[Rfam]
RNA sequence: GCCGAAGUGGCGGAAUUGGCAGACGCGCUACGUUCAGGGCGUAGUGAGUGUACUCUCAUGAGGGUUCAAAUCCCUCCUCCGGCA
Numbered sequence: 001g002c003c004g005a006a007g008u009g010g011c012g013g014a015a016u017u018g019g020c021a022g023a024c025g026c027g028c029u030a031c032g033u034u035c036a037g038g039g040c041g042u043a044g045u046g047a048g049u050g051u052a053c054u055c056u057c058a059u060g061a062g063g064g065u066u067c068a069a070a071u072c073c074c075u076c077c078u079c080c081g082g083c084a
Base pairs, nucleotide, nucleotide: 001083002082003081004080006078007077010026011025012024028044029043030042031041032040060076061075062074063073064072
RNA: tRNA
Organism: Flexilinea flocculi